[Rfam]
RNA: mir-87 microRNA precursor family
RNA sequence: CGUUGACGGGCUUGAAAUCUUGCUCUCCCGUGAUUAUUUCGUAAAGGGUGAGCAAAGUUUCAGGUGUGUCAAAGG
Numbered sequence: 001c002g003u004u005g006a007c008g009g010g011c012u013u014g015a016a017a018u019c020u021u022g023c024u025c026u027c028c029c030g031u032g033a034u035u036a037u038u039u040c041g042u043a044a045a046g047g048g049u050g051a052g053c054a055a056a057g058u059u060u061c062a063g064g065u066g067u068g069u070c071a072a073a074g075g
Stems, first nucleotide, its partner, number of pairs: 003072005010065006016058001018056001020054001023052003027048003